Small nucleolar RNA SNORA14: a 134-nucleotide sequence from Scyliorhinus torazame. Taxonomically the source falls in Scyliorhinus (Eukaryota, Bilateria, Craniata, Carcharhiniformes). ACA14 is a member of the H/ACA class of snoRNA that guide the sites of modification of uridines to pseudouridines. Rfam 15.1 lists 848 matches to the family in 633 species.
RNA sequence: AUGCAUUCUUUUAAACCUCCUGGUUUUGUAUCGCAGCAAUGAGGACAAGUAAAGAAUGCUAAAUAAAAUCUCCAGAGAACUCCAAAGUGCUGAGCUUCACUUGUGCUUCUCACUAUUUCACGUCUCUGACAGCU
Numbered sequence: 001a002u003g004c005a006u007u008c009u010u011u012u013a014a015a016c017c018u019c020c021u022g023g024u025u026u027u028g029u030a031u032c033g034c035a036g037c038a039a040u041g042a043g044g045a046c047a048a049g050u051a052a053a054g055a056a057u058g059c060u061a062a063a064u065a066a067a068a069u070c071u072c073c074a075g076a077g078a079a080c081u082c083c084a085a086a087g088u089g090c091u092g093a094g095c096u097u098c099a100c101u102u103g104u105g106c107u108u109c110u111c112a113c114u115a116u117u118u119c120a121c122g123u124c125u126c127u128g129a130c131a132g133c134u
Stems, first nucleotide, its partner, number of pairs: 003059004009051001011049002018045004023040003063134001069129002074125003086114004092108001094106002098103001